[Rfam]
Shown here is a 78-nucleotide RNA from Mesorhabditis belari, a member of the family "SmY spliceosomal RNA".
NCBI's taxonomy places the organism under Eukaryota, Bilateria, Ecdysozoa, Nematoda, Mesorhabditis.

RNA sequence: GCAAUAUCUAAAGCAAAGCCCGGGUCUUAUUUAAGACCCUGGACGAUUAAUUUUUGGAAGCCUUUCCUAUGAAAGGCG
Numbered sequence: 001g002c003a004a005u006a007u008c009u010a011a012a013g014c015a016a017a018g019c020c021c022g023g024g025u026c027u028u029a030u031u032u033a034a035g036a037c038c039c040u041g042g043a044c045g046a047u048u049a050a051u052u053u054u055u056g057g058a059a060g061c062c063u064u065u066c067c068u069a070u071g072a073a074a075g076g077c078g
Stems, first nucleotide, its partner, number of pairs: 022039003026035003060077007